The family of this 76-nucleotide RNA sequence from Malurus cyaneus is "Small nucleolar RNA SNORD19". By type it is a C/D-box small nucleolar RNA. It scores 40 bits against the family's covariance model.
RNA sequence: GAAAAAUGAUGAUAUUCCCUCAAUCUUCUGCACUUACAGUGAAGACCUCAGAUCCAACUCUGAUUUCACUCUAGUU
Numbered sequence: 001g002a003a004a005a006a007u008g009a010u011g012a013u014a015u016u017c018c019c020u021c022a023a024u025c026u027u028c029u030g031c032a033c034u035u036a037c038a039g040u041g042a043a044g045a046c047c048u049c050a051g052a053u054c055c056a057a058c059u060c061u062g063a064u065u066u067c068a069c070u071c072u073a074g075u076u
Stems, first nucleotide, its partner, number of pairs: 001067004